This 276-nucleotide RNA sequence from Pseudomonas knackmussii belongs to the Rfam family "rne-II RNA". It is annotated as a cis-regulatory element. It scores 208 bits against the family's covariance model. The source organism's lineage runs through Bacteria, Pseudomonadota, Pseudomonadaceae, Pseudomonas and Pseudomonas knackmussii.

RNA sequence: AAACGUGCAGGGUGGAGAUGCACAACUGUCGGAUCGCGUAGUGGCUUAGAGCACUGAUCCAAAGACGCACGUUCUCGUCCGCCUCCGACUGUUGAUUCCUCCUCCUGUUGAUUGCUUGUUCGAACAUGACAAGCAGGAGACGUAGUCGCGACUCGGCCCGCUUAACGCCGAUUGUCGCUGGACACGGGAAUGGCUUGCCGUUCCUGAGUACGCGCCUGAGCACCGACCAUGAGAGUCGUGGGUGCCGAUUGCCGUUUCCGGCAGCCCCGGAAACCA
Numbered sequence: 001a002a003a004c005g006u007g008c009a010g011g012g013u014g015g016a017g018a019u020g021c022a023c024a025a026c027u028g029u030c031g032g033a034u035c036g037c038g039u040a041g042u043g044g045c046u047u048a049g050a051g052c053a054c055u056g057a058u059c060c061a062a063a064g065a066c067g068c069a070c071g072u073u074c075u076c077g078u079c080c081g082c083c084u085c086c087g088a089c090u091g092u093u094g095a096u097u098c099c100u101c102c103u104c105c106u107g108u109u110g111a112u113u114g115c116u117u118g119u120u121c122g123a124a125c126a127u128g129a130c131a132a133g134c135a136g137g138a139g140a141c142g143u144a145g146u147c148g149c150g151a152c153u154c155g156g157c158c159c160g161c162u163u164a165a166c167g168c169c170g171a172u173u174g175u176c177g178c179u180g181g182a183c184a185c186g187g188g189a190a191u192g193g194c195u196u197g198c199c200g201u202u203c204c205u206g207a208g209u210a211c212g213c214g215c216c217u218g219a220g221c222a223c224c225g226a227c228c229a230u231g232a233g234a235g236u237c238g239u240g241g242g243u244g245c246c247g248a249u250u251g252c253c254g255u256u257u258c259c260g261g262c263a264g265c266c267c268c269g270g271a272a273a274c275c276a
Stems, first nucleotide, its partner, number of pairs: 014102004023094004028089005036082003043055002064079004103138005141212004145183003148178004154170003159167002187204007220243002223240001224238004254274007